[Rfam]
About this RNA:
Rfam assigns this 107-nucleotide sequence to the family "cow-rumen-2 RNA". The family's consensus secondary structure is taken from published work.
RNA sequence: AUCGACGAUGAGAAUAGCGAUCUCAUUAGAAAAGCCGCCAUUGGCAGUAUAGGAUGUAGCUGGAAUACAGGAUGACCGAUCCAUAAGCCUAUAUGUAAGUCCCGAGA
Numbered sequence: 001a002u003c004g005a006c007g008a009u010g011a012g013a014a015u016a017g018c019g020a021u022c023u024c025a026u027u028a029g030a031a032a033a034g035c036c037g038c039c040a041u042u043g044g045c046a047g048u049a050u051a052g053g054a055u056g057u058a059g060c061u062g063g064a065a066u067a068c069a070g071g072a073u074g075a076c077c078g079a080u081c082c083a084u085a086a087g088c089c090u091a092u093a094u095g096u097a098a099g100u101c102c103c104g105a106g107a
Base pairs, nucleotide, nucleotide: 002079007027008026009025010024011023012022013021041104043102044101045099047094048093049092050091051090052089053088061083062082063081064080066078070077071076
Dot-bracket structure: .[....(((((((.......))))))).............(.(((.(((((((.......((((.(...((....)))]))))....)))))))....).)).)...